[Rfam]
RNA sequence: UGGCGCCCAACGUGAGAGCUCAAGUCAAGGAAUACAGUGAGGGACGCCGUCAGGACCAGAGGGCACAGGAGAACUAAGAAACCCGGAGGAAAGAGCGUCGUGGGAGCCUGCCACGGACUCGCGCUCCGGUAAGCGGACGGCGAAUAUGGGACAGGAAAUCAGCCAGCAUGAGUUGUUUAUAGAGAGUUUAAGUAAGGCUUUAAAAGCGCGAGGAGUAAAGAUGAAAAUAAAACAAUUGUGUAAGUAUUUCGAUUAUAUUCAAGAUGUCUGCCCUU
Numbered sequence: 001u002g003g004c005g006c007c008c009a010a011c012g013u014g015a016g017a018g019c020u021c022a023a024g025u026c027a028a029g030g031a032a033u034a035c036a037g038u039g040a041g042g043g044a045c046g047c048c049g050u051c052a053g054g055a056c057c058a059g060a061g062g063g064c065a066c067a068g069g070a071g072a073a074c075u076a077a078g079a080a081a082c083c084c085g086g087a088g089g090a091a092a093g094a095g096c097g098u099c100g101u102g103g104g105a106g107c108c109u110g111c112c113a114c115g116g117a118c119u120c121g122c123g124c125u126c127c128g129g130u131a132a133g134c135g136g137a138c139g140g141c142g143a144a145u146a147u148g149g150g151a152c153a154g155g156a157a158a159u160c161a162g163c164c165a166g167c168a169u170g171a172g173u174u175g176u177u178u179a180u181a182g183a184g185a186g187u188u189u190a191a192g193u194a195a196g197g198c199u200u201u202a203a204a205a206g207c208g209c210g211a212g213g214a215g216u217a218a219a220g221a222u223g224a225a226a227a228u229a230a231a232a233c234a235a236u237u238g239u240g241u242a243a244g245u246a247u248u249u250c251g252a253u254u255a256u257a258u259u260c261a262a263g264a265u266g267u268c269u270g271c272c273c274u275u
Stems, first nucleotide, its partner, number of pairs: 007030002012026001037045002083129003087125002093120003099115005134154001136152001141148002159202001161200001162198003209251005215245002219237002222234002261274001263272001265270001
Shown here is a 275-nucleotide sequence from Callithrix jacchus, a member of the family "Mason-Pfizer monkey virus packaging signal". It scores 102 bits against the family's covariance model. The family has 9 seed sequences and 2,921 matches in Rfam 15.1. This family represents a group of sequences that are related to the Mason-Pfizer monkey virus (MPMV) packaging signal. The packaging signal is located in the 5' UTR and is required for specific RNA encapsidation. The organism belongs to Callithrix, within Eukaryota.